[Rfam]
The record is a 125-nucleotide RNA from Oxalobacter vibrioformis, which matches "SAH (S-adenosyl-L-homocysteine) riboswitch aptamer" in Rfam. The base pairs follow the family's consensus structure, which is taken from published work. Lineage of the source: Bacteria > Pseudomonadati > Pseudomonadota > Oxalobacteraceae > Oxalobacter. It scores 53 bits against the family's covariance model.

RNA sequence: CUGACCGAGGAGCGUUGCGACGAAAUGAUCUGACACUCGCGUUUUGUUUCUGUGAUUGCAGAAACAGAGGGUUAUGCGAGGGGUUUCGCCAGGCUCGGUUACUGUAUGAACGGCGCUCACGUUAC
Numbered sequence: 001c002u003g004a005c006c007g008a009g010g011a012g013c014g015u016u017g018c019g020a021c022g023a024a025a026u027g028a029u030c031u032g033a034c035a036c037u038c039g040c041g042u043u044u045u046g047u048u049u050c051u052g053u054g055a056u057u058g059c060a061g062a063a064a065c066a067g068a069g070g071g072u073u074a075u076g077c078g079a080g081g082g083g084u085u086u087c088g089c090c091a092g093g094c095u096c097g098g099u100u101a102c103u104g105u106a107u108g109a110a111c112g113g114c115g116c117u118c119a120c121g122u123u124a125c
Stems, first nucleotide, its partner, number of pairs: 002101007021088006